[Rfam]
The family of this 59-nucleotide RNA sequence from Blomia tropicalis is "Plastid-psbA-2 3UTR RNA".
The literature on the family includes a 2023 paper in Plant Commun by Richter et al., "Retrograde signaling in plants: A critical review focusing on the GUN pathway and beyond".
RNA sequence: AUUAAGGAGCAAUUAACUCUUUCUUGUUUUAUCAAGAGGGUUAUUGCUCCUUAUAUUUA
Numbered sequence: 001a002u003u004a005a006g007g008a009g010c011a012a013u014u015a016a017c018u019c020u021u022u023c024u025u026g027u028u029u030u031a032u033c034a035a036g037a038g039g040g041u042u043a044u045u046g047c048u049c050c051u052u053a054u055a056u057u058u059a
Stems, first nucleotide, its partner, number of pairs: 003053011015042005022037005
The match comes from Rfam's covariance-model search (66 bits).
The family's consensus secondary structure was predicted with LocARNA.
NCBI's taxonomy places the organism under Eukaryota, Eumetazoa, Bilateria, Acari, Blomia.